[Rfam]
ASpks TB sRNA: a 75-nucleotide sequence from Streptomyces dioscori. Taxonomically the source falls in Streptomyces (Bacteria, Bacillati, Kitasatosporales, Streptomycetaceae).

RNA sequence: CUUGAUGGACCCCAGCCACAACGGACGCUCCUCCGGGCGGUCCUGGCCAUACGUUGCCAGCAGCGCCUGCGCCUC
Numbered sequence: 001c002u003u004g005a006u007g008g009a010c011c012c013c014a015g016c017c018a019c020a021a022c023g024g025a026c027g028c029u030c031c032u033c034c035g036g037g038c039g040g041u042c043c044u045g046g047c048c049a050u051a052c053g054u055u056g057c058c059a060g061c062a063g064c065g066c067c068u069g070c071g072c073c074u075c
Stems, first nucleotide, its partner, number of pairs: 016024002031071001033069001038065002043060003047056001049054001